[Rfam]
RNA sequence: CACUGCGCUGGUUGGAUCGGAUUAACAACAGCGGCGCAGGGUGAGUCCCCAACUGUUGGAUAGGUGCUGAAACAGGGGAAAGGGUGGCGAAGCCAGAGCCCUUGCAUCGAACGUCUGGCGGGU
Numbered sequence: 001c002a003c004u005g006c007g008c009u010g011g012u013u014g015g016a017u018c019g020g021a022u023u024a025a026c027a028a029c030a031g032c033g034g035c036g037c038a039g040g041g042u043g044a045g046u047c048c049c050c051a052a053c054u055g056u057u058g059g060a061u062a063g064g065u066g067c068u069g070a071a072a073c074a075g076g077g078g079a080a081a082g083g084g085u086g087g088c089g090a091a092g093c094c095a096g097a098g099c100c101c102u103u104g105c106a107u108c109g110a111a112c113g114u115c116u117g118g119c120g121g122g123u
Base pairs, nucleotide, nucleotide: 001041003039004038005037006036007035008034009033010032028056029055030054031053047078048077049076050075064107065106066105067104080103081102082101083100084099085098092119093118094117095116096115097114

A member of the RNA family "Betaproteobacteria-1 RNA" from Variovorax sp. PAMC 28711, 123 nucleotides long.